The record is a 76-nucleotide RNA sequence from Populus tomentosa, which matches "Small nucleolar RNA R12" in Rfam. For this family Rfam cites "The high diversity of snoRNAs in plants: identification and comparative study of 120 snoRNA genes from Oryza sativa" (Chen et al., Nucleic Acids Res, 2003). It scores 42 bits against the family's covariance model. About the family: snoR12 is a C/D box small nucleolar RNA, which acts as a methylation guide for 25S ribosomal RNA in plants. snoR12 has been alternatively named snoZ44 in Arabidopsis and snoZ131 in rice. Gene Ontology terms of the family: nucleolus and RNA processing.
[Rfam]
RNA sequence: AUGGCAGAUGAAAUGAAUAAGAUGAAUUCCCGUUGAUAAUUCAAUGUGAUAUAAUAACCAACCACUUCUGAUCCAU
Numbered sequence: 001a002u003g004g005c006a007g008a009u010g011a012a013a014u015g016a017a018u019a020a021g022a023u024g025a026a027u028u029c030c031c032g033u034u035g036a037u038a039a040u041u042c043a044a045u046g047u048g049a050u051a052u053a054a055u056a057a058c059c060a061a062c063c064a065c066u067u068c069u070g071a072u073c074c075a076u
Stems, first nucleotide, its partner, number of pairs: 001076004
Dot-bracket structure: ((((....................................................................))))